[Rfam]
RNA sequence: CUCUUAUCAAGAGCGGCGGAGGGAACGGCCCGAUGAAGCCCGGCAACCGGGGCGCUUCGCCCGGCAGGUGCCAACUCCGGAAGGACAGCCGUCCUUCGAGAUGAGAG
Numbered sequence: 001c002u003c004u005u006a007u008c009a010a011g012a013g014c015g016g017c018g019g020a021g022g023g024a025a026c027g028g029c030c031c032g033a034u035g036a037a038g039c040c041c042g043g044c045a046a047c048c049g050g051g052g053c054g055c056u057u058c059g060c061c062c063g064g065c066a067g068g069u070g071c072c073a074a075c076u077c078c079g080g081a082a083g084g085a086c087a088g089c090c091g092u093c094c095u096u097c098g099a100g101a102u103g104a105g106a107g
Stems, first nucleotide, its partner, number of pairs: 001107008013041001015040003021031003026079003042072004047068002050062003076099001081096006
The family of this 107-nucleotide RNA from Candidatus Hydrogenisulfobacillus filiaventi is "SAM riboswitch aptamer (S box leader)". A search with the family's covariance model found it, with a score of 82 bits. From the family's description: The SAM riboswitch is found upstream of a number of genes which code for proteins involved in methionine or cysteine biosynthesis in Gram-positive bacteria. The SAM riboswitch acts at the level of transcription termination control. The predicted structure consists of a complex stem-loop region followed by a single stem loop terminator region.